Shown here is a 154-nucleotide RNA sequence from Pseudochrobactrum saccharolyticum, a member of the family "FMN riboswitch aptamer (RFN element)". NCBI's taxonomy places the organism under Bacteria, Alphaproteobacteria, Hyphomicrobiales, Brucellaceae, Pseudochrobactrum. A search with the family's covariance model found it, with a score of 117 bits. The family's consensus secondary structure is taken from published work. The literature on the family includes a 2002 paper in Nucleic Acids Res by Vitreschak et al., "Regulation of riboflavin biosynthesis and transport genes in bacteria by transcriptional and translational attenuation".
Nucleotides: 154
Stems, first nucleotide, its partner, number of pairs: 003152008017029003031134002033124002035065004060122002068100002104120005126137003
Number, partner (000 for none) and nucleotide at each position: 001000u002000g003152u004151u005150g006149u007148u008147c009146u010145c011000g012000g013000g014000g015000c016000g017029g018028g019027g020000u021000g022000c023000g024000a025000u026000u027019c028018c029017c030000c031134a032133c033124c034123g035065g036064c037063g038062g039000u040000a041000u042000g043000a044000a045000g046000a047000g048000g049000a050000a051000a052000c053000u054000c055000u056000u057000u058000g059000a060122g061121c062038c063037c064036g065035c066000g067000a068100g069099c070000g071000u072000c073000u074000g075000a076000a077000u078000a079000a080000a081000g082000c083000g084000a085000u086000u087000u088000g089000u090000u091000c092000a093000g094000a095000g096000u097000c098000a099069g100068c101000a102000g103000a104120u105119c106118c107117g108116g109000u110000g111000c112000g113000a114000u115000g116108c117107c118106g119105g120104a121061g122060c123034c124033g125000a126137c127136g128135g129000u130000a131000u132000a133032g134031u135128c136127c137126g138000g139000a140000u141000g142000a143000a144000a145010g146009a147008g148007a149006g150005c151004a152003a153000a154000g